[Rfam]
A member of the RNA family "Archaeal small subunit ribosomal RNA" from an uncultured archaeon, 577 nucleotides of a longer RNA. The family's consensus secondary structure is taken from published work. It is one of the family's seed sequences. For this family Rfam cites "Crystal structure of the ribosome at 5.5 A resolution" (Yusupov et al., Science, 2001).
RNA sequence: UGGCGGGGGAGCACCACAACGGGUGGAGCUUGCGGUUUAAUUGGAUUCAACGCCGGAAAUCUUACCGGGACCGACAGCAAUAUGAAGGCCAGGCUGAAGACUUUGCCGGAUUAGCUGAGAGGUGGUGCAUGGCCGUCGUCAGUUCGUACUGUGAAGCAUCCUGUUAAGUCAGGCAACGAGCGAGACCCACGCCCACAGUUGCCAGCGUACUCUCCGGAGUGACGGGUACACUGUGGGGACCGCCGCUGCUAAAGCGGAGGAAGGAAUGGGCAACGGUAGGUCAGUAUGCCCCGAAUAUCCCGGGCUACACGCGAGCUACAAUGGUUGGUACGAUGGGUAUCUACCCCGAAAGGGGAUGGAAAUCUCCUAAAGCCAAUCUUAGUCCGGAUUGAGGGCUGCAACUCGCCCUCAUGAAGCUGGAAUCCGUAGUAAUCGCGUUUCAACAGAACGCGGUGAAUACGUCCCUGCUCCUUGCACACACCGCCCGUCAAACCACCCGAGUAGGGUCUGAAUGAGAGCGCUUCCUUCGGAGGCGUUCGAAUUUGGGCUUUGCAAGGGGGGUUAAGUCGUAACAAGG
Numbered sequence: 001u002g003g004c005g006g007g008g009g010a011g012c013a014c015c016a017c018a019a020c021g022g023g024u025g026g027a028g029c030u031u032g033c034g035g036u037u038u039a040a041u042u043g044g045a046u047u048c049a050a051c052g053c054c055g056g057a058a059a060u061c062u063u064a065c066c067g068g069g070a071c072c073g074a075c076a077g078c079a080a081u082a083u084g085a086a087g088g089c090c091a092g093g094c095u096g097a098a099g100a101c102u103u104u105g106c107c108g109g110a111u112u113a114g115c116u117g118a119g120a121g122g123u124g125g126u127g128c129a130u131g132g133c134c135g136u137c138g139u140c141a142g143u144u145c146g147u148a149c150u151g152u153g154a155a156g157c158a159u160c161c162u163g164u165u166a167a168g169u170c171a172g173g174c175a176a177c178g179a180g181c182g183a184g185a186c187c188c189a190c191g192c193c194c195a196c197a198g199u200u201g202c203c204a205g206c207g208u209a210c211u212c213u214c215c216g217g218a219g220u221g222a223c224g225g226g227u228a229c230a231c232u233g234u235g236g237g238g239a240c241c242g243c244c245g246c247u248g249c250u251a252a253a254g255c256g257g258a259g260g261a262a263g264g265a266a267u268g269g270g271c272a273a274c275g276g277u278a279g280g281u282c283a284g285u286a287u288g289c290c291c292c293g294a295a296u297a298u299c300c301c302g303g304g305c306u307a308c309a310c311g312c313g314a315g316c317u318a319c320a321a322u323g324g325u326u327g328g329u330a331c332g333a334u335g336g337g338u339a340u341c342u343a344c345c346c347c348g349a350a351a352g353g354g355g356a357u358g359g360a361a362a363u364c365u366c367c368u369a370a371a372g373c374c375a376a377u378c379u380u381a382g383u384c385c386g387g388a389u390u391g392a393g394g395g396c397u398g399c400a401a402c403u404c405g406c407c408c409u410c411a412u413g414a415a416g417c418u419g420g421a422a423u424c425c426g427u428a429g430u431a432a433u434c435g436c437g438u439u440u441c442a443a444c445a446g447a448a449c450g451c452g453g454u455g456a457a458u459a460c461g462u463c464c465c466u467g468c469u470c471c472u473u474g475c476a477c478a479c480a481c482c483g484c485c486c487g488u489c490a491a492a493c494c495a496c497c498c499g500a501g502u503a504g505g506g507u508c509u510g511a512a513u514g515a516g517a518g519c520g521c522u523u524c525c526u527u528c529g530g531a532g533g534c535g536u537u538c539g540a541a542u543u544u545g546g547g548c549u550u551u552g553c554a555a556g557g558g559g560g561g562u563u564a565a566g567u568c569g570u571a572a573c574a575a576g577g
Base pairs, nucleotide, nucleotide: 001478002477003475004474005473007472008471009470010469011468012467013466016462017461020426021425022424023423024422025319027317028316029315030314031313032312033311034310035308036307041056042055043054044053065303066302067301068300069299070298075117076116077115078114079112080111087107088106089105091103092102093101121292122291124290125289126288127287130286131285132281133280134279135277136276137275138274142181143180144179145178146177147176149156150155160173161172162171163170187269188268189267192237193236194235195234196233197232198231202226203225206224207223208222209220210219211218212217240260241259243257244256245255246254247253323378324377325376326375327374328373329372335366336365337364340359341358344355345354346353347352385416390411391410392409393408394407395406396405432454433453434452435451436450437449438448439447481576483573486569487568489566491563492562493561494560496558497557498556501553502552503551504550505549506548507547508546509545510544511543512542513541516538517537518536519535520534521533522532523531524530525529
Dot-bracket structure: (((((.(((((((..((..((((((.((((((((((....((((........))))........((((((....((((((......(((.(((.......))).)))...)).))))...((.((((..(((((((((...((((((.((....))...((((......))))..)))))).....(((..(((((((...((..(((((((....)))).)))))....)))))))..((.(((((.....))))).))......)))....)))).)))...)))))))).....))))))...)).)))))))).)...(((((((.....(((..((..((((....))))..))....))).....)))))))......(....(((((((........)))))))....).....))))).....((((((((.......))))))))......))...)))))))))).))..(.(..((.(.((((.(((..(((((((((((((..((((((((((...))))))))))..)))))))))))))..))).))))..).))...)..).